[Rfam]
The family of this 97-nucleotide RNA sequence from Jannaschia donghaensis is "TPP riboswitch aptamer (THI element)".
Vitamin B(1) in its active form thiamin pyrophosphate (TPP) is an essential coenzyme that is synthesised by coupling of pyrimidine and thiazole moieties in bacteria.
Pairs were carried over by alignment from the consensus structure, which is taken from published work.
RNA sequence: CUAAAGCAACAGGGGCAUCCGGCAUCCGCCGGGUUGAGACGUACCCUCUGAACCUGACCCGGCUCAUACCGGCGGAGGAAGUUGCGCGUCGGCUGCC
Numbered sequence: 001c002u003a004a005a006g007c008a009a010c011a012g013g014g015g016c017a018u019c020c021g022g023c024a025u026c027c028g029c030c031g032g033g034u035u036g037a038g039a040c041g042u043a044c045c046c047u048c049u050g051a052a053c054c055u056g057a058c059c060c061g062g063c064u065c066a067u068a069c070c071g072g073c074g075g076a077g078g079a080a081g082u083u084g085c086g087c088g089u090c091g092g093c094u095g096c097c
Stems, first nucleotide, its partner, number of pairs: 006085005011047004016041001017034005053078003059072004